[Rfam]
RNA sequence: UAAGCAAAAAAUACAUAUCACACACGUUCCGUCACAAUGCUCAGGGUGCCUUCGGGUUGGGUGUUGGGGGUCGUGGAGGUUUAAC
Numbered sequence: 001u002a003a004g005c006a007a008a009a010a011a012u013a014c015a016u017a018u019c020a021c022a023c024a025c026g027u028u029c030c031g032u033c034a035c036a037a038u039g040c041u042c043a044g045g046g047u048g049c050c051u052u053c054g055g056g057u058u059g060g061g062u063g064u065u066g067g068g069g070g071u072c073g074u075g076g077a078g079g080u081u082u083a084a085c
Stems, first nucleotide, its partner, number of pairs: 023075004028070003035066009048057003
About this RNA: This 85-nucleotide RNA from Neptuniibacter caesariensis belongs to the Rfam family "t44 RNA". About the family: This family consists of a number of bacterial RNA genes of between 135 and 170 bases in length. The t44 gene has been identified in several species of enteric bacteria but homologs have also been identified in Pseudomonas and Coxiella species. The organism belongs to Neptuniibacter, within Bacteria. A reference for the family is Tjaden et al. (2002), "Transcriptome analysis of Escherichia coli using high-density oligonucleotide probe arrays", Nucleic Acids Res. The family's RNA type in Rfam is small RNA.